The family of this 117-nucleotide RNA is "Betaproteobacteria-1 RNA".
RNA sequence: GUGGUGCGCGGAGAGGGUAACCACCGGCGCGCGUCACUGAUAUAUCCACCGGGGGGUAAGGGGAGAAAAGGAUACAGCGCGACGAAGUUAGCACGCUGCCCCGUAAGGCUGACGUAA
Numbered sequence: 001g002u003g004g005u006g007c008g009c010g011g012a013g014a015g016g017g018u019a020a021c022c023a024c025c026g027g028c029g030c031g032c033g034u035c036a037c038u039g040a041u042a043u044a045u046c047c048a049c050c051g052g053g054g055g056g057u058a059a060g061g062g063g064a065g066a067a068a069a070g071g072a073u074a075c076a077g078c079g080c081g082a083c084g085a086a087g088u089u090a091g092c093a094c095g096c097u098g099c100c101c102c103g104u105a106a107g108g109c110u111g112a113c114g115u116a117a
Stems, first nucleotide, its partner, number of pairs: 001037010024052004043074005060102004075098005087113006